[Rfam]
RNA: Small nucleolar RNA snoR8a
RNA sequence: UUGGUUGCAAUGAUUAGAUGAAAUAACUAUGUUUCUGAAUGCUAAUUUUAGCAUGGAAGACUCCAUUAAUAGCUGGAUAGUAUAUGAGCACC
Numbered sequence: 001u002u003g004g005u006u007g008c009a010a011u012g013a014u015u016a017g018a019u020g021a022a023a024u025a026a027c028u029a030u031g032u033u034u035c036u037g038a039a040u041g042c043u044a045a046u047u048u049u050a051g052c053a054u055g056g057a058a059g060a061c062u063c064c065a066u067u068a069a070u071a072g073c074u075g076g077a078u079a080g081u082a083u084a085u086g087a088g089c090a091c092c
Stems, first nucleotide, its partner, number of pairs: 003092002006090002